[Rfam]
RNA sequence: AGUUUUCUGGGAUGCGCGGGAAGUGUGCCGAGACUUUGACCAACGUUUUCUGAUGACCUUAAUCUGUUCGUGUGGUUAUGGUGAGCAAGCCGACUCUCAAGCCGGAAGCCUGAAGUAGCCACCACAGACAAAGCUUGCUGAAGGUCAUAGCCCGGUACCAACCCGUCAUCCUGGAAACCAU
Number, nucleotide and partner (000 for none) at each position: 001a000002g179003u000004u177005u176006u175007c174008u173009g172010g171011g170012a169013u168014g167015c000016g000017c165018g164019g163020g000021a000022a000023g000024u000025g000026u000027g000028c000029c000030g000031a000032g152033a000034c150035u149036u000037u147038g146039a145040c144041c143042a000043a000044c000045g000046u000047u000048u000049u000050c000051u000052g000053a000054u000055g000056a000057c000058c000059u132060u131061a000062a000063u128064c127065u126066g125067u124068u000069c000070g122071u000072g000073u121074g120075g119076u118077u117078a116079u115080g000081g000082u000083g000084a000085g109086c108087a000088a000089g000090c105091c104092g103093a000094c101095u000096c000097u000098c000099a000100a000101g094102c000103c092104g091105g090106a000107a000108g086109c085110c000111u000112g000113a000114a000115g079116u078117a077118g076119c075120c074121a073122c070123c000124a067125c066126a065127g064128a063129c000130a000131a060132a059133g000134c000135u000136u000137g000138c000139u000140g000141a000142a000143g041144g040145u039146c038147a037148u000149a035150g034151c000152c032153c000154g000155g000156u000157a000158c000159c000160a000161a000162c000163c019164c018165g017166u000167c014168a013169u012170c011171c010172u009173g008174g007175a006176a005177a004178c000179c002180a000181u000
Shown here is a 181-nucleotide RNA from Pelovirga terrestris, a member of the family "6S / SsrS RNA". The literature on the family includes a 2017 paper in RNA Biol by Elkina et al., "6S RNA in Rhodobacter sphaeroides: 6S RNA and pRNA transcript levels peak in late exponential phase and gene deletion causes a high salt stress phenotype". From the family's description: E. coli 6S RNA was the first non coding RNA to be sequenced, but its function was unknown until recently. The family's RNA type in Rfam is non-coding RNA gene.